RNA sequence: GCCUGGUGGUUCCUUGAGGCUGCUCACUGUGCUGUUCAUCAAGGUGAUAUUUCACAGGCAAAAAGUAAAUUCUUUAGUUCAAUGCUUGGGAGUUGCUCAUCUCUGUGACUUCCAAAGCCCGACUGAAGAAACAUGU
Numbered sequence: 001g002c003c004u005g006g007u008g009g010u011u012c013c014u015u016g017a018g019g020c021u022g023c024u025c026a027c028u029g030u031g032c033u034g035u036u037c038a039u040c041a042a043g044g045u046g047a048u049a050u051u052u053c054a055c056a057g058g059c060a061a062a063a064a065g066u067a068a069a070u071u072c073u074u075u076a077g078u079u080c081a082a083u084g085c086u087u088g089g090g091a092g093u094u095g096c097u098c099a100u101c102u103c104u105g106u107g108a109c110u111u112c113c114a115a116a117g118c119c120c121g122a123c124u125g126a127a128g129a130a131a132c133a134u135g136u
Stems, first nucleotide, its partner, number of pairs: 001059004007049002010046001012044006019035002022032002072128001074126006084118002086115004091110006